Source information:
The family of this 91-nucleotide sequence from Anaerovirgula multivorans is "SAM riboswitch aptamer (S box leader)". Rfam links the family to the GO term regulation of gene expression. Pairs were carried over by alignment from the consensus structure, which is taken from published work.
RNA sequence: AGCUUAUCGAGAAUUAGGGGAGAGAGUUGGCUCUAUGAUCCUAUACCAACCUACUAAUAACGUAAGGUGGUCCGGCUGACAACGAUAAGAG
Numbered sequence: 001a002g003c004u005u006a007u008c009g010a011g012a013a014u015u016a017g018g019g020g021a022g023a024g025a026g027u028u029g030g031c032u033c034u035a036u037g038a039u040c041c042u043a044u045a046c047c048a049a050c051c052u053a054c055u056a057a058u059a060a061c062g063u064a065a066g067g068u069g070g071u072c073c074g075g076c077u078g079a080c081a082a083c084g085a086u087a088a089g090a091g
Stems, first nucleotide, its partner, number of pairs: 003089006013044001015043004022033003028078003045071004050067002052064003075083001